RNA sequence: GAAGACCCUGUUGAGCUUGACUCUAGUCCGACUUUGUGAAAAGACAUAGAGGGUGUAGCAUAAGUGGGAGCCACCGCAAGGGGCGACAAUGAAAUACCACUACCUUUAUCGUUUUUUUACUUAUUGAAUUGUAUUGAAGAGACUAUACCCCUGGUAUUAGUCUGUUAUGGAUCAAGACCGGCGCAUUGUUGCCGGUUGAUCAAGGUUCAAGACAUAGUCAGGUGGGGAGUUUGGCUGGGGCGGCACAUCUGUUAAACAAUAACGCAGAUGUCCUAAGGUGAGCUCAAUGAGAACAGAAAUCUCAUGUAGAACAAAAGGGUAAAAGCUCACUUGAUUUUGAUUUUCAGUAUGAAUACAAACCGAGAAAUCGUGGCCUAUCGAUCCUUUAGAUCCUUUGAAUGUAAGGCUAGAGGUGUCAGAAAAGUUACCACAGGGAUAACUGGCUUGUGGCAGCCAAGCGUUCAUAGCGACGUUGCUUUUUGAUCCUUCGAUGUCGGCUCUUCCUAUCAUUGCGAAGCAGAAUUCGCAAAGCGUUGGAUUGUUCACCCACUAACAGGGAACGUGAGCUGGGUUUAGACCGUCGUGAGACAGGUUAGUU
Numbered sequence: 001g002a003a004g005a006c007c008c009u010g011u012u013g014a015g016c017u018u019g020a021c022u023c024u025a026g027u028c029c030g031a032c033u034u035u036g037u038g039a040a041a042a043g044a045c046a047u048a049g050a051g052g053g054u055g056u057a058g059c060a061u062a063a064g065u066g067g068g069a070g071c072c073a074c075c076g077c078a079a080g081g082g083g084c085g086a087c088a089a090u091g092a093a094a095u096a097c098c099a100c101u102a103c104c105u106u107u108a109u110c111g112u113u114u115u116u117u118u119a120c121u122u123a124u125u126g127a128a129u130u131g132u133a134u135u136g137a138a139g140a141g142a143c144u145a146u147a148c149c150c151c152u153g154g155u156a157u158u159a160g161u162c163u164g165u166u167a168u169g170g171a172u173c174a175a176g177a178c179c180g181g182c183g184c185a186u187u188g189u190u191g192c193c194g195g196u197u198g199a200u201c202a203a204g205g206u207u208c209a210a211g212a213c214a215u216a217g218u219c220a221g222g223u224g225g226g227g228a229g230u231u232u233g234g235c236u237g238g239g240g241c242g243g244c245a246c247a248u249c250u251g252u253u254a255a256a257c258a259a260u261a262a263c264g265c266a267g268a269u270g271u272c273c274u275a276a277g278g279u280g281a282g283c284u285c286a287a288u289g290a291g292a293a294c295a296g297a298a299a300u301c302u303c304a305u306g307u308a309g310a311a312c313a314a315a316a317g318g319g320u321a322a323a324a325g326c327u328c329a330c331u332u333g334a335u336u337u338u339g340a341u342u343u344u345c346a347g348u349a350u351g352a353a354u355a356c357a358a359a360c361c362g363a364g365a366a367a368u369c370g371u372g373g374c375c376u377a378u379c380g381a382u383c384c385u386u387u388a389g390a391u392c393c394u395u396u397g398a399a400u401g402u403a404a405g406g407c408u409a410g411a412g413g414u415g416u417c418a419g420a421a422a423a424g425u426u427a428c429c430a431c432a433g434g435g436a437u438a439a440c441u442g443g444c445u446u447g448u449g450g451c452a453g454c455c456a457a458g459c460g461u462u463c464a465u466a467g468c469g470a471c472g473u474u475g476c477u478u479u480u481u482g483a484u485c486c487u488u489c490g491a492u493g494u495c496g497g498c499u500c501u502u503c504c505u506a507u508c509a510u511u512g513c514g515a516a517g518c519a520g521a522a523u524u525c526g527c528a529a530a531g532c533g534u535u536g537g538a539u540u541g542u543u544c545a546c547c548c549a550c551u552a553a554c555a556g557g558g559a560a561c562g563u564g565a566g567c568u569g570g571g572u573u574u575a576g577a578c579c580g581u582c583g584u585g586a587g588a589c590a591g592g593u594u595a596g597u598u
Stems, first nucleotide, its partner, number of pairs: 007434004012430002014426005020230004027222002030219004036120010046109007063101005070084002124210005134203004142161004176197008233246001234244003247269006272373002278330006284310002287305006311320002335359003340354004361370003384412006392406004443484001445482001447481001449477006458468002495570001496568004500562001501559005508533001511528006535549003539545001576594004580589003

Eukaryotic large subunit ribosomal RNA: a 598-nucleotide part of an RNA from Mitosporidium daphniae.
Its Rfam clan is "LSU clan".